[Rfam]
RNA sequence: UGGCCGGGACGCUUUUGGCCGUGUCCCGGCCACGGCCGGAAAUCCCGUCCGGGACGGCCCGG
Numbered sequence: 001u002g003g004c005c006g007g008g009a010c011g012c013u014u015u016u017g018g019c020c021g022u023g024u025c026c027c028g029g030c031c032a033c034g035g036c037c038g039g040a041a042a043u044c045c046c047g048u049c050c051g052g053g054a055c056g057g058c059c060c061g062g
Stems, first nucleotide, its partner, number of pairs: 001032012049062005
RNA: Guanidine-II riboswitch aptamer (mini-ykkC)
Organism: Amycolatopsis sp. CA-230715